[Rfam]
RNA sequence: UAGGCAGUAUGAAGACUCAACCUCAAACCCCAUGGGGAGGGUUGAGUCCGACAACUGGGCCGA
Numbered sequence: 001u002a003g004g005c006a007g008u009a010u011g012a013a014g015a016c017u018c019a020a021c022c023u024c025a026a027a028c029c030c031c032a033u034g035g036g037g038a039g040g041g042u043u044g045a046g047u048c049c050g051a052c053a054a055c056u057g058g059g060c061c062g063a
Stems, first nucleotide, its partner, number of pairs: 001063001003061003014048010029037003
Source information
Shown here is a 63-nucleotide RNA from Eptatretus burgeri, a member of the family "Selenocysteine insertion sequence 1". Rfam classes the family as a cis-regulatory element. The base pairs follow the family's consensus structure, which is taken from published work.